A member of the RNA family "Purine riboswitch aptamer" from Clostridium niameyense, 102 nucleotides long. The family's consensus secondary structure is taken from published work.
[Rfam]
Nucleotides: 102
Stems, first nucleotide, its partner, number of pairs: 018088001020086006029049001031047005058078007
Number, partner (000 for none) and nucleotide at each position: 001000a002000u003000a004000u005000a006000a007000a008000a009000u010000a011000a012000u013000g014000u015000g016000a017000a018088a019000g020086c021085u022084c023083g024082u025081a026000u027000a028000g029049u030000a031047u032046c033045g034044g035043a036000a037000a038000u039000a040000u041000g042000g043035u044034c045033c046032g047031a048000g049029a050000g051000u052000a053000u054000c055000u056000a057000c058078c059077u060076a061075c062074u063073a064072a065000c066000c067000a068000u069000a070000a071000a072064u073063u074062a075061g076060u077059g078058g079000a080000c081025u082024a083023c084022g085021g086020g087000g088018u089000a090000u091000u092000g093000u094000g095000u096000a097000u098000u099000u100000a101000u102000u